[Rfam]
RNA sequence: AAUCGAUCCGGCGAUGAGGCUCGCCGGGCGGGGCUUUCCCCGCGAACCGCCAUGCCCCGGGCGUGGCUGAUAGCCUCUAUCCCACG
Numbered sequence: 001a002a003u004c005g006a007u008c009c010g011g012c013g014a015u016g017a018g019g020c021u022c023g024c025c026g027g028g029c030g031g032g033g034c035u036u037u038c039c040c041c042g043c044g045a046a047c048c049g050c051c052a053u054g055c056c057c058c059g060g061g062c063g064u065g066g067c068u069g070a071u072a073g074c075c076u077c078u079a080u081c082c083c084a085c086g
Base pairs, nucleotide, nucleotide: 010025011024012023013022016077017076018075019074020073021072049067050066051065052064053063054062055061056060
Notes
Shown here is an 86-nucleotide RNA sequence from Candidatus Thermoflexus japonica, a member of the family "Fluoride riboswitch aptamer (crcB RNA motif)". Taxonomically the source falls in Thermoflexus (Bacteria, Bacillati, Chloroflexota, Thermoflexales).